The family of this 200-nucleotide RNA sequence from Diutina rugosa is "Small nucleolar RNA snR43". Its Rfam clan is "SNORA9 clan".
[Rfam]
RNA sequence: CCCUCCUGUUUCUGCCACCGUAUCUUCCCUAAUAGAUGCGAGUGUUCUGGUGAUGGAGGAGAGCGAGCGGGGUGUCUGCCCGAGGCAACUUUUGAUACAACCUGCCUCGGGGGAGGCCCUGAUCGGGUGUGCGGCUUUGUAUCCCUAGCGGGCGUCCAGCACCAGGGUGUGCUGGGGGUCUGAUCGGCCCCACUACAUUA
Number, nucleotide and partner (000 for none) at each position: 001c000002c000003c058004u057005c056006c055007u000008g000009u000010u000011u000012c000013u000014g000015c000016c044017a043018c042019c000020g039021u038022a037023u036024c035025u034026u000027c000028c000029c000030u000031a000032a000033u000034a025035g024036a023037u022038g021039c020040g000041a000042g018043u017044g016045u000046u000047c000048u000049g000050g000051u000052g000053a000054u000055g006056g005057a004058g003059g000060a000061g000062a000063g000064c000065g000066a000067g000068c121069g120070g119071g118072g117073u116074g000075u114076c113077u112078g000079c111080c110081c109082g108083a107084g106085g105086c104087a103088a000089c000090u000091u000092u000093u000094g000095a000096u000097a000098c000099a000100a000101c000102c000103u087104g086105c085106c084107u083108c082109g081110g080111g079112g077113g076114a075115g000116g073117c072118c071119c070120u069121g068122a000123u000124c000125g000126g000127g193128u192129g191130u000131g000132c000133g189134g188135c187136u186137u000138u000139g000140u000141a000142u000143c000144c000145c000146u000147a000148g000149c000150g179151g000152g000153c177154g000155u000156c174157c000158a173159g172160c171161a170162c169163c000164a000165g000166g000167g000168u000169g162170u161171g160172c159173u158174g156175g000176g000177g153178g000179u150180c000181u000182g000183a000184u000185c000186g136187g135188c134189c133190c000191c129192a128193c127194u000195a000196c000197a000198u000199u000200a000

NCBI's taxonomy places the organism under Eukaryota, Ascomycota, Serinales, Debaryomycetaceae, Diutina.
On this family, see Balakin et al., Cell 1996: "The RNA world of the nucleolus: two major families of small RNAs defined by different box elements with related functions".